[Rfam]
RNA sequence: GGUUUCUAUUGGUGCAAAUUCAAUUACCUCGAUUUUCAAUUGAAAAUGCGAAAGAAUUCCCCAUUGGUAGCAAAUGAUUAUCUGUUAAGCAGGGCAAAUCUUAU
Numbered sequence: 001g002g003u004u005u006c007u008a009u010u011g012g013u014g015c016a017a018a019u020u021c022a023a024u025u026a027c028c029u030c031g032a033u034u035u036u037c038a039a040u041u042g043a044a045a046a047u048g049c050g051a052a053a054g055a056a057u058u059c060c061c062c063a064u065u066g067g068u069a070g071c072a073a074a075u076g077a078u079u080a081u082c083u084g085u086u087a088a089g090c091a092g093g094g095c096a097a098a099u100c101u102u103a104u
Stems, first nucleotide, its partner, number of pairs: 009023004059094003063085002066082005
RNA: Plastid-rps12 3UTR RNA